[Rfam]
RNA sequence: CGAUGACCUCCCGCAUUCACCUCUGUCCGAUUGUGGCAUUCUGGUUCCCUUCUCGCGAGAAAGGAAGCAGGAUGCUGCGAUCGGACAGAGGUGACUGCGGGAGGACAUUGAGGG
Numbered sequence: 001c002g003a004u005g006a007c008c009u010c011c012c013g014c015a016u017u018c019a020c021c022u023c024u025g026u027c028c029g030a031u032u033g034u035g036g037c038a039u040u041c042u043g044g045u046u047c048c049c050u051u052c053u054c055g056c057g058a059g060a061a062a063g064g065a066a067g068c069a070g071g072a073u074g075c076u077g078c079g080a081u082c083g084g085a086c087a088g089a090g091g092u093g094a095c096u097g098c099g100g101g102a103g104g105a106c107a108u109u110g111a112g113g114g
Stems, first nucleotide, its partner, number of pairs: 010101006018093002021090023045066003
Rfam assigns this 114-nucleotide RNA sequence from Leptobrachium leishanense to the family "mraW RNA". The base pairs follow the family's consensus structure, which is taken from published work. The source organism's lineage runs through Eukaryota, Bilateria, Sarcopterygii, Megophryidae and Leptobrachium.